[Rfam]
The record is a 98-nucleotide RNA from Ovis aries, which matches "mir-544 microRNA precursor family" in Rfam. For this family Rfam cites "Mammalian microRNAs: experimental evaluation of novel and previously annotated genes" (Chiang et al., Genes Dev, 2010). The base pairs follow the family's consensus structure, which was predicted with RNAalifold. Rfam links the family to the GO terms miRNA-mediated post-transcriptional gene silencing and RISC complex. Taxonomically the source falls in Ovis (Eukaryota, Metazoa, Euteleostomi, Laurasiatheria).

RNA sequence: AUCACCUAGAGAUCUUGUUAAAAGGCAGAUUCUGAUUCAGUACAUCCAGGGUAGAGCCUGAGAUUCUGCAUUUAUAACAAGCUCCCAGGUGUUGCUGG
Numbered sequence: 001a002u003c004a005c006c007u008a009g010a011g012a013u014c015u016u017g018u019u020a021a022a023a024g025g026c027a028g029a030u031u032c033u034g035a036u037u038c039a040g041u042a043c044a045u046c047c048a049g050g051g052u053a054g055a056g057c058c059u060g061a062g063a064u065u066c067u068g069c070a071u072u073u074a075u076a077a078c079a080a081g082c083u084c085c086c087a088g089g090u091g092u093u094g095c096u097g098g
Stems, first nucleotide, its partner, number of pairs: 003091003009085001011083001014081007021073003025069005031063003